[Rfam]
RNA sequence: GCCGAUGAUGAUAUAAUCCUGUCUUCGAGGUGCAGUGGAGCUGAGACCCUGUUUAUCAGGGAGAACCCCUUGGCAGAAACUGCAAUUUCUAUGAAGCUAUAUGGAUUUUUACUGAGGC
Numbered sequence: 001g002c003c004g005a006u007g008a009u010g011a012u013a014u015a016a017u018c019c020u021g022u023c024u025u026c027g028a029g030g031u032g033c034a035g036u037g038g039a040g041c042u043g044a045g046a047c048c049c050u051g052u053u054u055a056u057c058a059g060g061g062a063g064a065a066c067c068c069c070u071u072g073g074c075a076g077a078a079a080c081u082g083c084a085a086u087u088u089c090u091a092u093g094a095a096g097c098u099a100u101a102u103g104g105a106u107u108u109u110u111a112c113u114g115a116g117g118c
Stems, first nucleotide, its partner, number of pairs: 001118003047061005
Shown here is a 118-nucleotide sequence from Arabidopsis lyrata, a member of the family "Small nucleolar RNA Z278".
Gene Ontology terms of the family: RNA processing and nucleolus.
Rfam classes the family as a C/D-box small nucleolar RNA.
The organism belongs to Arabidopsis lyrata, within Eukaryota.
snoZ278 is a C/D box small nucleolar RNA. Its methylation guide targets have not been reported.